[Rfam]
RNA: Small nucleolar RNA SNORD83
RNA sequence: GCCACAUGAUGUUUUCACGUUGAGAAUUGAGUGCUUUGCACAAUGAUGACUUAAAUCUAUCACCCUUAACUGAUGGCU
Numbered sequence: 001g002c003c004a005c006a007u008g009a010u011g012u013u014u015u016c017a018c019g020u021u022g023a024g025a026a027u028u029g030a031g032u033g034c035u036u037u038g039c040a041c042a043a044u045g046a047u048g049a050c051u052u053a054a055a056u057c058u059a060u061c062a063c064c065c066u067u068a069a070c071u072g073a074u075g076g077c078u
Base pairs, nucleotide, nucleotide: 001077002076003075004074031041032040033039034038